Rfam assigns this 134-nucleotide RNA sequence to the family "Small nucleolar RNA SNORA71". The base pairs follow the family's consensus structure, which was predicted with PFOLD. The family's RNA type in Rfam is H/ACA-box small nucleolar RNA. Rfam describes the family as follows. The members of this family belong to the H/ACA class of snoRNAs which bind a number of proteins (including dyskerin, Gar1p and Nop10p) to form snoRNP complexes. This class of snoRNAs are thought to guide the sites of modification of uridines to pseudouridines by forming direct base pairing interactions with substrate RNAs. This family includes U71 (SNORA71), ACA39 (SNORA39) and ACA60 (SNORA60). U71 and ACA60 are predicted to guide the pseudouridylation of U406 and U1004 in 18S rRNA respectively. There is currently no target RNA identified for ACA39.
RNA sequence: UCCUGCAUCCGAAAGUGAUCAUAGGCUGCCUGUGCCUAGGUCAUUGAUAGUGCAGGGAGAGGAACGCUGAAAGAGGUUGUCCCCGUGUUUGGAGGGUCCACCCUAUCCCAUCCGAACCCUGAAGCUUUCACACA
Numbered sequence: 001u002c003c004u005g006c007a008u009c010c011g012a013a014a015g016u017g018a019u020c021a022u023a024g025g026c027u028g029c030c031u032g033u034g035c036c037u038a039g040g041u042c043a044u045u046g047a048u049a050g051u052g053c054a055g056g057g058a059g060a061g062g063a064a065c066g067c068u069g070a071a072a073g074a075g076g077u078u079g080u081c082c083c084c085g086u087g088u089u090u091g092g093a094g095g096g097u098c099c100a101c102c103c104u105a106u107c108c109c110a111u112c113c114g115a116a117c118c119c120u121g122a123a124g125c126u127u128u129c130a131c132a133c134a
Stems, first nucleotide, its partner, number of pairs: 001057008014045007023037004066131001068130006087117005092111001094109003